RNA sequence: CUCUUAUCGAGAAAGGUGGAGGGAUCAGGCCCUGUGAAACCUUAGCAACCGCUUCCGGAUUACCUGUGUAAUCGGGAAGGUCAGGUGCUAAAUCCUGCUCCGGGAUGGUGAAACCGUCCCGUGGGAAAGAUGAGGG
Numbered sequence: 001c002u003c004u005u006a007u008c009g010a011g012a013a014a015g016g017u018g019g020a021g022g023g024a025u026c027a028g029g030c031c032c033u034g035u036g037a038a039a040c041c042u043u044a045g046c047a048a049c050c051g052c053u054u055c056c057g058g059a060u061u062a063c064c065u066g067u068g069u070a071a072u073c074g075g076g077a078a079g080g081u082c083a084g085g086u087g088c089u090a091a092a093u094c095c096u097g098c099u100c101c102g103g104g105a106u107g108g109u110g111a112a113a114c115c116g117u118c119c120c121g122u123g124g125g126a127a128a129g130a131u132g133a134g135g136g
Base pairs, nucleotide, nucleotide: 001136002135003134004133005132006131007130008129013043014042015041016040017039021032022031023030026097027096028095029094044089045088046087047086049085050084051081052080053079054078093128098125099124100123

About this RNA: A member of the RNA family "SAM riboswitch aptamer (S box leader)" from Natronogracilivirga saccharolytica, 136 nucleotides long. The match comes from Rfam's covariance-model search (73 bits). Its family is annotated with regulation of gene expression in the Gene Ontology. NCBI's taxonomy places the organism under Bacteria, Pseudomonadati, Balneolia, Cyclonatronaceae, Natronogracilivirga. The base pairs follow the family's consensus structure, which is taken from published work.